RNA: c-di-AMP riboswitch aptamer (ydaO/yuaA leader)
Organism: Streptomyces chumphonensis
RNA sequence: GUGCAGCGAUCGCCGAGUCCCCGUGAGGGGAGCCGGGGACCCACAUGUCCUCUGGGGUGAAUCGGGCCUGCGCCCGUAGGAGACCUUCCUGCUCCGAACCCGUCAGCUAACCCGGUAGGCGAGAAGGAAGGAAAGG
Numbered sequence: 001g002u003g004c005a006g007c008g009a010u011c012g013c014c015g016a017g018u019c020c021c022c023g024u025g026a027g028g029g030g031a032g033c034c035g036g037g038g039a040c041c042c043a044c045a046u047g048u049c050c051u052c053u054g055g056g057g058u059g060a061a062u063c064g065g066g067c068c069u070g071c072g073c074c075c076g077u078a079g080g081a082g083a084c085c086u087u088c089c090u091g092c093u094c095c096g097a098a099c100c101c102g103u104c105a106g107c108u109a110a111c112c113c114g115g116u117a118g119g120c121g122a123g124a125a126g127g128a129a130g131g132a133a134a135g136g
Stems, first nucleotide, its partner, number of pairs: 011121004018031003032116006042054002055101003063076004079095004